[Rfam]
RNA sequence: ACGAAAAACCGCGUCCCCCCAUAGGGGUACGCGGAGCCUGUUGUUUAUACAGGCAAUGGGAGAGGAGAAACCGGAGGAAGCGCUUAUGGGGAAACGUAAGCGUUCUCCGCGG
Numbered sequence: 001a002c003g004a005a006a007a008a009c010c011g012c013g014u015c016c017c018c019c020c021a022u023a024g025g026g027g028u029a030c031g032c033g034g035a036g037c038c039u040g041u042u043g044u045u046u047a048u049a050c051a052g053g054c055a056a057u058g059g060g061a062g063a064g065g066a067g068a069a070a071c072c073g074g075a076g077g078a079a080g081c082g083c084u085u086a087u088g089g090g091g092a093a094a095c096g097u098a099a100g101c102g103u104u105c106u107c108c109g110c111g112g
Stems, first nucleotide, its partner, number of pairs: 011032004016027004037060005072109004077105003082101005
Notes
The family of this 112-nucleotide RNA sequence from Geomicrobium sp. JCM 19039 is "ylbH leader". From the family's description: This family is a putative regulatory RNA structure that is found upstream of the ylbH gene in B. subtilis and related low GC Gram-positive bacteria. It scores 71 bits against the family's covariance model. The source organism's lineage runs through Bacteria, Bacillati, Bacillota, Caryophanales and Geomicrobium. For this family Rfam cites "New RNA motifs suggest an expanded scope for riboswitches in bacterial genetic control" (Barrick et al., Proc Natl Acad Sci U S A, 2004).